[Rfam]
RNA sequence: ACGGCGACCGCUGAAAAGCCGCAACAGAGUAGGCA
Numbered sequence: 001a002c003g004g005c006g007a008c009c010g011c012u013g014a015a016a017a018g019c020c021g022c023a024a025c026a027g028a029g030u031a032g033g034c035a
Stems, first nucleotide, its partner, number of pairs: 002021004010034003
The family of this 35-nucleotide RNA sequence from Hymenobacter sp. BRD67 is "DUF805b RNA". The base pairs follow the family's consensus structure, which is taken from published work. It is annotated as a cis-regulatory element.